[Rfam]
The family of this 57-nucleotide sequence from Aquilegia coerulea is "Plastid-rps18 3UTR RNA". Rfam describes the family as follows. Plastid rps18 is a non-coding RNA (ncRNA) present in plastids. It was identified as a short stem-loop motif in the 3 prime untranslate region (3UTR) of rps18 gene.
RNA sequence: UGCAAGUAUUUUACGAUUAAGAAGCAACCGCCCCUUGUACAGAUCAUAUAUGGAUCU
Numbered sequence: 001u002g003c004a005a006g007u008a009u010u011u012u013a014c015g016a017u018u019a020a021g022a023a024g025c026a027a028c029c030g031c032c033c034c035u036u037g038u039a040c041a042g043a044u045c046a047u048a049u050a051u052g053g054a055u056c057u
Stems, first nucleotide, its partner, number of pairs: 018037004024031002
It is annotated as a cis-regulatory element.